ASpks TB sRNA: a 69-nucleotide sequence from Streptomyces malaysiensis. The family has 77 seed sequences and 9,052 matches in Rfam 15.1. For this family Rfam cites "Identification of small RNAs in Mycobacterium tuberculosis" (Arnvig and Young, Mol Microbiol, 2009). It scores 77 bits against the family's covariance model. Lineage of the source: Bacteria > Actinomycetota > Actinomycetes > Kitasatosporales > Streptomyces.

[Rfam]
RNA sequence: CUUCACCGACCCCAGCCACAGCGGCCGGUCGCGCUCCUGGCCGUAGGUGGCCAGGAGCGCCUCGGCCUC
Numbered sequence: 001c002u003u004c005a006c007c008g009a010c011c012c013c014a015g016c017c018a019c020a021g022c023g024g025c026c027g028g029u030c031g032c033g034c035u036c037c038u039g040g041c042c043g044u045a046g047g048u049g050g051c052c053a054g055g056a057g058c059g060c061c062u063c064g065g066c067c068u069c
Base pairs, nucleotide, nucleotide: 015025016024017023032059033058037054038053039052041050042049043048
Dot-bracket structure: ..............(((.....)))......((...(((.(((....))).)))...))..........